[Rfam]
A member of the RNA family "mir-395 microRNA precursor family" from Corymbia citriodora, 106 nucleotides long. mir-395 was identified in both Arabidopsis thaliana and Oryza sativa computationally and was later experimentally verified. mir-395 is thought to target mRNAs coding for ATP sulphurylases. Gene Ontology terms of the family: RISC complex and miRNA-mediated post-transcriptional gene silencing. On this family, see Jones-Rhoades and Bartel, Mol Cell 2004: "Computational Identification of Plant MicroRNAs and Their Targets, Including a Stress-Induced miRNA". NCBI's taxonomy places the organism under Eukaryota, Streptophytina, Euphyllophyta, Eucalypteae, Corymbia citriodora. The family has 25 seed sequences and 2,798 matches in Rfam 15.1. The match comes from Rfam's covariance-model search (68 bits).
Nucleotides: 106
Stems, first nucleotide, its partner, number of pairs: 005102001007100002011096020032075008
Number, partner (000 for none) and nucleotide at each position: 001000g002000u003000g004000g005102c006000c007100c008099c009000u010000a011096g012095a013094g014093u015092u016091c017090u018089c019088c020087c021086a022085a023084a024083c025082a026081c027080u028079u029078c030077a031000a032075u033074g034073g035072g036071g037070a038069u039068u040000u041000g042000a043000a044000a045000a046000g047000g048000a049000a050000a051000a052000a053000a054000g055000u056000a057000a058000a059000g060000a061000c062000a063000a064000g065000u066000g067000a068039a069038g070037u071036u072035c073034c074033u075032a076000g077030u078029g079028a080027a081026g082025u083024g084023u085022u086021u087020g088019g089018g090017g091016g092015a093014a094013c095012u096011c097000c098000c099008g100007g101000u102005g103000c104000c105000a106000c